[Rfam]
RNA sequence: AUGGGCAAAUAUGUGUAACUAAAUCUUAUCCUACACACUGACAAUUAUAUUUACGUGUCGAUUAUAAUCUUCGCUAUUGUCUGAUGCUCAU
Numbered sequence: 001a002u003g004g005g006c007a008a009a010u011a012u013g014u015g016u017a018a019c020u021a022a023a024u025c026u027u028a029u030c031c032u033a034c035a036c037a038c039u040g041a042c043a044a045u046u047a048u049a050u051u052u053a054c055g056u057g058u059c060g061a062u063u064a065u066a067a068u069c070u071u072c073g074c075u076a077u078u079g080u081c082u083g084a085u086g087c088u089c090a091u
Stems, first nucleotide, its partner, number of pairs: 003089005

The record is a 91-nucleotide RNA sequence from Asparagus officinalis, which matches "Small nucleolar RNA R16" in Rfam. Pairs were carried over by alignment from the consensus structure, which was predicted with PFOLD. A reference for the family is Galardi et al. (2002), "Purified box C/D snoRNPs are able to reproduce site-specific 2'-O-methylation of target RNA in vitro", Mol Cell Biol. Rfam links the family to the GO terms RNA processing and nucleolus. Rfam 15.1 lists 884 matches to the family in 222 species.